The record is an 80-nucleotide RNA from Labeo rohita, which matches "Small nucleolar RNA SNORD74" in Rfam. Rfam classes the family as a C/D-box small nucleolar RNA. A search with the family's covariance model found it, with a score of 41 bits.
[Rfam]
RNA sequence: GUUCACUUGCGUGACGAUAAAUGAGUUUUGAUAGAGAUAUCUGAGAAUUUCUGAUGAGUACAAACAUCUCUGAUGUGCAC
Numbered sequence: 001g002u003u004c005a006c007u008u009g010c011g012u013g014a015c016g017a018u019a020a021a022u023g024a025g026u027u028u029u030g031a032u033a034g035a036g037a038u039a040u041c042u043g044a045g046a047a048u049u050u051c052u053g054a055u056g057a058g059u060a061c062a063a064a065c066a067u068c069u070c071u072g073a074u075g076u077g078c079a080c
Stems, first nucleotide, its partner, number of pairs: 001080002004077002